[Rfam]
RNA: mir-17 microRNA precursor family
Organism: Triplophysa tibetana
RNA sequence: CAGGCAGUGCCAAAGUGCUUAUAGUGCAGGUAGUGUGUUUGUCAUCUACUGCAGUGUGAGCACUUGAAGUACUUCUAG
Numbered sequence: 001c002a003g004g005c006a007g008u009g010c011c012a013a014a015g016u017g018c019u020u021a022u023a024g025u026g027c028a029g030g031u032a033g034u035g036u037g038u039u040u041g042u043c044a045u046c047u048a049c050u051g052c053a054g055u056g057u058g059a060g061c062a063c064u065u066g067a068a069g070u071a072c073u074u075c076u077a078g
Base pairs, nucleotide, nucleotide: 004075006073007072009070010069013065014064015063016062017061018060019059020058021057022056023055025053026052027051029050030049031048032047033046